Rfam assigns this 40-nucleotide RNA sequence from Rhinopomastus cyanomelas to the family "Prion pseudoknot". From the family's description: This family represents a predicted pseudoknot structure found in prion protein mRNA. It has been suggested that the family has a possible effect in prion protein translation. Lineage of the source: Eukaryota > Craniata > Amniota > Coelurosauria > Rhinopomastus. Rfam classes the family as a cis-regulatory element.

RNA sequence: CCAGGGAGGUGGUUGGGGCCCCAUCCCUGGAGGUGGCUGG
Numbered sequence: 001c002c003a004g005g006g007a008g009g010u011g012g013u014u015g016g017g018g019c020c021c022c023a024u025c026c027c028u029g030g031a032g033g034u035g036g037c038u039g040g
Base pairs, nucleotide, nucleotide: 001030002029003028004027005026006025
Notes
Pairs were carried over by alignment from the consensus structure, which is taken from published work. It scores 41 bits against the family's covariance model.